Shown here is a 143-nucleotide sequence from Neobacillus rhizophilus, a member of the family "c-di-AMP riboswitch aptamer (ydaO/yuaA leader)". The organism belongs to Neobacillus, within Bacteria.

RNA sequence: AUUUCUAAAUCGCUGAAACCGAUAGGUGCGGGGGAACCAUUUUUCUGGAUUAUUAAUUAAUCCUGGGGGUGAAUCCUUUCAGGCAGGGCUACUCAUUGGCCCGAACCCGACAGCUAACCUCGCAAGCGUUAUAUUGAGAAGGA
Numbered sequence: 001a002u003u004u005c006u007a008a009a010u011c012g013c014u015g016a017a018a019c020c021g022a023u024a025g026g027u028g029c030g031g032g033g034g035a036a037c038c039a040u041u042u043u044u045c046u047g048g049a050u051u052a053u054u055a056a057u058u059a060a061u062c063c064u065g066g067g068g069g070u071g072a073a074u075c076c077u078u079u080c081a082g083g084c085a086g087g088g089c090u091a092c093u094c095a096u097u098g099g100c101c102c103g104a105a106c107c108c109g110a111c112a113g114c115u116a117a118c119c120u121c122g123c124a125a126g127c128g129u130u131a132u133a134u135u136g137a138g139a140a141g142g143a
Base pairs, nucleotide, nucleotide: 011128012127013126014125018027019026020025028123029122030121031120032119033118038066067108068107069106075083076082077081086102087101088100089099